[Rfam]
RNA sequence: GGAUGGACAGAGUUGUCAUGUGUCUGCCUGUCUACACUUGCUGUGCAGAACAUCCGCUCACCUGUACAGCAGGCACAGACAGGCAGUCACAUGACAACCCAGCC
Numbered sequence: 001g002g003a004u005g006g007a008c009a010g011a012g013u014u015g016u017c018a019u020g021u022g023u024c025u026g027c028c029u030g031u032c033u034a035c036a037c038u039u040g041c042u043g044u045g046c047a048g049a050a051c052a053u054c055c056g057c058u059c060a061c062c063u064g065u066a067c068a069g070c071a072g073g074c075a076c077a078g079a080c081a082g083g084c085a086g087u088c089a090c091a092u093g094a095c096a097a098c099c100c101a102g103c104c
Stems, first nucleotide, its partner, number of pairs: 020090003025085009037073001039071006046064003
Dot-bracket structure: ...................(((..(((((((((...(.((((((.(((.............))).)))))).)...)))))))))..)))..............
Rfam assigns this 104-nucleotide RNA from Rattus norvegicus to the family "mir-214 microRNA precursor family".
Lineage of the source: Eukaryota > Craniata > Gnathostomata > Euarchontoglires > Rattus.
The base pairs follow the family's consensus structure, which was predicted with RNAalifold.